[Rfam]
A member of the RNA family "Small nucleolar RNA SNORD113/SNORD114 family", 75 nucleotides long.
RNA sequence: UGGAUCAAUGAUAAAACUUGCUGGCAUAUGAAUCUUGGAUAAUGGAUGAUACGUGUGUGGAACUCUGAGGUCCAA
Numbered sequence: 001u002g003g004a005u006c007a008a009u010g011a012u013a014a015a016a017c018u019u020g021c022u023g024g025c026a027u028a029u030g031a032a033u034c035u036u037g038g039a040u041a042a043u044g045g046a047u048g049a050u051a052c053g054u055g056u057g058u059g060g061a062a063c064u065c066u067g068a069g070g071u072c073c074a075a
Stems, first nucleotide, its partner, number of pairs: 002073005

Clan: SNORD74 clan. It is one of the family's seed sequences. The family's consensus secondary structure is taken from published work. The imprinted human domain at 14q32 contains two clusters of tandemly repeated small nucleolar RNAs named 14q(I) and 14q(II) snoRNAs. These two clusters are named SNORD113 and SNORD114 respectively in the HGNC approved gene symbol nomenclature. The snoRNAs found in both clusters are clearly related and are represented here by a single family. These snoRNAs are intron encoded and are processed from the tissue-specific non-coding human MEG8 RNA, which lies downstream of the imprinted genes DLK1 and GTL2. snoRNAs 14q(I) and 14q(II) differ from previously identified C/D box snoRNAs in their expression profiles and lack of complementarity to rRNA and snRNA. Homologues of these snoRNAs are found in the imprinted non-coding mouse transcript Rian, and in the rat non-coding Bsr (brain-specific repetitive) RNA. Rfam links the family to the GO terms RNA processing and nucleolus.